[Rfam]
Overview
The family of this 73-nucleotide RNA is "RAGATH-18 RNA". By type it is a small RNA. Rfam's curators write: Actinobacteria, Firmicutes, Fusobacteria, Thermotogae (1 example).
RNA sequence: CCUAUGGAGAGUACAAGAACUUGUAAGUAGUGAUUGACUUGUCAACACGAAAGCAUACUCGUUGAAAUAGGAA
Number, nucleotide and partner (000 for none) at each position: 001c071002c070003u069004a068005u067006g000007g000008a000009g060010a059011g058012u057013a056014c000015a000016a000017g000018a000019a000020c000021u000022u055023g054024u053025a000026a000027g000028u000029a000030g048031u047032g046033a000034u045035u044036g000037a000038c000039u000040u000041g000042u000043c000044a035045a034046c032047a031048c030049g000050a000051a000052a000053g024054c023055a022056u013057a012058c011059u010060c009061g000062u000063u000064g000065a000066a000067a005068u004069a003070g002071g001072a000073a000